Shown here is a 133-nucleotide RNA from Aneurinibacillus soli, a member of the family "c-di-AMP riboswitch aptamer (ydaO/yuaA leader)". The match comes from Rfam's covariance-model search (76 bits). The source organism's lineage runs through Bacteria, Bacillati, Bacilli, Caryophanales and Aneurinibacillus.
Nucleotides: 133
Stems, first nucleotide, its partner, number of pairs: 012118003018032003033114006044054001056099003064075004078093004
Number, partner (000 for none) and nucleotide at each position: 001000a002000a003000a004000a005000u006000u007000u008000a009000c010000u011000u012118g013117c014116c015000g016000a017000a018032u019031u020030c021000a022000c023000g024000u025000a026000c027000u028000g029000u030020g031019a032018a033114g034113c035112g036111g037110g038109g039000g040000g041000a042000a043000a044054g045000u046000a047000u048000u049000a050000u051000u052000u053000u054044u055000g056099g057098g058097g059000u060000g061000a062000a063000u064075c065074u066073g067072c068000g069000u070000a071000u072067g073066c074065g075064g076000a077000c078093a079092g080091a081090g082000a083000c084000c085000u086000u087000a088000u089000c090081c091080u092079c093078u094000g095000a096000a097058c098057c099056c100000g101000u102000c103000a104000a105000c106000u107000a108000a109038c110037c111036u112035c113034g114033u115000a116014g117013g118012c119000u120000c121000g122000a123000a124000g125000g126000g127000a128000g129000u130000a131000a132000a133000u